RNA: Lysine riboswitch aptamer
RNA sequence: AGAUGAGGUAGAGGUCGCGGUUUUUAUAAGUACGGCGGGAGAGACGCGGAGAACGUCUAUGAAUUCGUCGGAAAGGAAAAAUCGCCGAAGUCUGUGUGCGUUCUCCGUGCGCGCGGGCUGGGGCUGUCACCGAACAGGGGCAGAACUGUCACGUUUGCUUUCUGAACGAACGUGAUGCGCUAUCUUCAUG
Numbered sequence: 001a002g003a004u005g006a007g008g009u010a011g012a013g014g015u016c017g018c019g020g021u022u023u024u025u026a027u028a029a030g031u032a033c034g035g036c037g038g039g040a041g042a043g044a045c046g047c048g049g050a051g052a053a054c055g056u057c058u059a060u061g062a063a064u065u066c067g068u069c070g071g072a073a074a075g076g077a078a079a080a081a082u083c084g085c086c087g088a089a090g091u092c093u094g095u096g097u098g099c100g101u102u103c104u105c106c107g108u109g110c111g112c113g114c115g116g117g118c119u120g121g122g123g124c125u126g127u128c129a130c131c132g133a134a135c136a137g138g139g140g141c142a143g144a145a146c147u148g149u150c151a152c153g154u155u156u157g158c159u160u161u162c163u164g165a166a167c168g169a170a171c172g173u174g175a176u177g178c179g180c181u182a183u184c185u186u187c188a189u190g
Stems, first nucleotide, its partner, number of pairs: 006185006017085009033070007089119012120147002124143005130137001149175009